[Rfam]
RNA sequence: UACACGAAAAGGCAAACUCAGGGAAACCUGAUGUGCGCAAAGCUAUAGGGGCUUCAUCCUUAAACAGGAUAUGCUCGCCAGCUGCCGAA
Number, nucleotide and partner (000 for none) at each position: 001u000002a000003c000004a000005c000006g000007a000008a000009a000010a000011g000012g038013c037014a000015a000016a000017c033018u031019c030020a029021g028022g027023g000024a000025a000026a000027c022028c021029u020030g019031a018032u000033g017034u000035g000036c000037g013038c012039a000040a000041a083042g082043c081044u080045a000046u000047a000048g079049g078050g075051g074052c073053u000054u000055c000056a000057u069058c068059c067060u066061u000062a000063a000064a000065c000066a060067g059068g058069a057070u000071a000072u000073g052074c051075u050076c000077g000078c049079c048080a044081g043082c042083u041084g000085c000086c000087g000088a000089a000
c-di-GMP-I riboswitch aptamer: an 89-nucleotide RNA sequence from Paenibacillus sp. Leaf72. The source organism's lineage runs through Bacteria, Bacillati, Bacillota, Paenibacillaceae and Paenibacillus. Rfam describes the family as follows. GEMM was predicted in a large-scale screen for bacterial structured RNA regulatory elements. Its family is annotated with cyclic-di-GMP binding in the Gene Ontology. A search with the family's covariance model found it, with a score of 64 bits. The base pairs follow the family's consensus structure, which is taken from published work.